RNA sequence: UGAAUCCUACCCGGGAAAGCCUAACCAGCACCCGGAACCGAGUGGUUGCGUAGUCAUUAGAAAUAACGGCACGAAGCGUACACGGGGAGUGCAAAAGCCGUGUACUUAAGCCUCGAAAAGAAACCCAACGUCGUUGGUUUUUACAUUGGUCAUUGCGGGAAUAGUAACUUUGUAACCGCCAUGUUUAGGGAACUGUGCCCGACCGGGGUCGUCGGACA
Numbered sequence: 001u002g003a004a005u006c007c008u009a010c011c012c013g014g015g016a017a018a019g020c021c022u023a024a025c026c027a028g029c030a031c032c033c034g035g036a037a038c039c040g041a042g043u044g045g046u047u048g049c050g051u052a053g054u055c056a057u058u059a060g061a062a063a064u065a066a067c068g069g070c071a072c073g074a075a076g077c078g079u080a081c082a083c084g085g086g087g088a089g090u091g092c093a094a095a096a097g098c099c100g101u102g103u104a105c106u107u108a109a110g111c112c113u114c115g116a117a118a119a120g121a122a123a124c125c126c127a128a129c130g131u132c133g134u135u136g137g138u139u140u141u142u143a144c145a146u147u148g149g150u151c152a153u154u155g156c157g158g159g160a161a162u163a164g165u166a167a168c169u170u171u172g173u174a175a176c177c178g179c180c181a182u183g184u185u186u187a188g189g190g191a192a193c194u195g196u197g198c199c200c201g202a203c204c205g206g207g208g209u210c211g212u213c214g215g216a217c218a
Stems, first nucleotide, its partner, number of pairs: 011035005019029002022187003038086002042083003046080001047078002049073003054069002057066003110209006130203004136199001137162003142157001144155002168197001170195001172193002176189002

This 218-nucleotide RNA sequence from Marinilabilia rubra belongs to the Rfam family "Group II catalytic intron D1-D4-6". Group II introns are found in rRNA, tRNA and mRNA of organelles in fungi, plants and protists, and also in mRNA in bacteria. A search with the family's covariance model found it, with a score of 74 bits. Gene Ontology term of the family: Group II intron splicing. For this family Rfam cites "The ins and outs of group II introns" (Bonen and Vogel, Trends Genet, 2001).